[Rfam]
RNA sequence: CGCCCCGUCAUUGGGGAGUAGCCUCCUUCACCUCCAGAAGGGGAUGCGUCAACAGACUUGGACUGCUUCAGUCCAUGGCGCAUCCGGCCCGAGCGGCUUGGCGAGACCUUUGGCGGGAGUCCCUCGACGCAUGGGGUCGGGCGGGACGACCGGCCAUUGGUUUCUUCGCCCGAUC
Numbered sequence: 001c002g003c004c005c006c007g008u009c010a011u012u013g014g015g016g017a018g019u020a021g022c023c024u025c026c027u028u029c030a031c032c033u034c035c036a037g038a039a040g041g042g043g044a045u046g047c048g049u050c051a052a053c054a055g056a057c058u059u060g061g062a063c064u065g066c067u068u069c070a071g072u073c074c075a076u077g078g079c080g081c082a083u084c085c086g087g088c089c090c091g092a093g094c095g096g097c098u099u100g101g102c103g104a105g106a107c108c109u110u111u112g113g114c115g116g117g118a119g120u121c122c123c124u125c126g127a128c129g130c131a132u133g134g135g136g137u138c139g140g141g142c143g144g145g146a147c148g149a150c151c152g153g154c155c156a157u158u159g160g161u162u163u164c165u166u167c168g169c170c171c172g173a174u175c
Base pairs, nucleotide, nucleotide: 026040027039042085043084044083045082046081047080048079049078050077051076059075060074061073062072063071091175092174
The record is a 175-nucleotide sequence from Paramagnetospirillum marisnigri, which matches "Manganese Mn2+ riboswitch aptamer (yybP-ykoY)" in Rfam. The match comes from Rfam's covariance-model search (84 bits). Gene Ontology term of the family: manganese ion binding. The pairing is the family consensus, mapped onto this sequence.